[Rfam]
RNA sequence: AACGAUGACACCCAUGAAUUGGGGAUCUUUUGGGUCGGUUGCGGCAGGGUUUAUCCCUGUGUCUUGCACCGUGCCCGCUUUUACCAACUUACGUAUCUUUUCCAUUCGGCCUUUACCGGCCACCCACGGGAAUAUCCUCAGCACGUUUUCUGUUUUUUCACGCGAAAGCUUUGAGGUUACAGUC
Number, nucleotide and partner (000 for none) at each position: 001a000002a000003c000004g000005a000006u000007g184008a183009c182010a177011c176012c175013c000014a146015u145016g144017a000018a000019u141020u140021g139022g138023g137024g136025a135026u134027c000028u000029u132030u131031u000032g000033g000034g000035u000036c000037g000038g000039u000040u000041g000042c000043g000044g000045c000046a000047g000048g000049g000050u000051u000052u000053a000054u000055c000056c000057c000058u000059g000060u000061g000062u000063c000064u000065u000066g000067c000068a000069c000070c000071g000072u000073g000074c000075c000076c000077g000078c000079u000080u000081u000082u000083a000084c000085c000086a000087a000088c000089u000090u000091a000092c000093g000094u000095a000096u000097c000098u000099u000100u000101u000102c000103c000104a000105u000106u000107c000108g000109g000110c000111c000112u000113u000114u000115a000116c000117c000118g000119g000120c000121c000122a000123c000124c000125c000126a000127c000128g000129g000130g000131a030132a029133u000134a026135u025136c024137c023138u022139c021140a020141g019142c000143a000144c016145g015146u014147u000148u000149u000150c000151u000152g000153u000154u000155u000156u000157u000158u000159c000160a000161c000162g169163c168164g000165a000166a000167a000168g163169c162170u000171u000172u000173g000174a000175g012176g011177u010178u000179a000180c000181a000182g009183u008184c007

The family of this 184-nucleotide part of an RNA from Leptomonas pyrrhocoris is "Eukaryotic small subunit ribosomal RNA". Rfam 15.1 lists 75,755 matches to the family in 2,556 species. The family is grouped with related families in Rfam's "SSU clan". The base pairs follow the family's consensus structure, which is taken from published work. The match comes from Rfam's covariance-model search (1269 bits). NCBI's taxonomy places the organism under Eukaryota, Euglenozoa, Trypanosomatida, Trypanosomatidae, Leptomonas.